L31-Firmicutes ribosomal protein leader: a 33-nucleotide RNA. Its Rfam clan is "Ribosomal Protein L31 Leader clan". A reference for the family is Eckert and Weinberg (2020), "Discovery of 20 novel ribosomal leader candidates in bacteria and archaea", BMC Microbiol.
[Rfam]
RNA sequence: CUAUGGUUUAAAGUUAAAUCAUGGCGGAAGGAG
Numbered sequence: 001c002u003a004u005g006g007u008u009u010a011a012a013g014u015u016a017a018a019u020c021a022u023g024g025c026g027g028a029a030g031g032a033g
Stems, first nucleotide, its partner, number of pairs: 001024010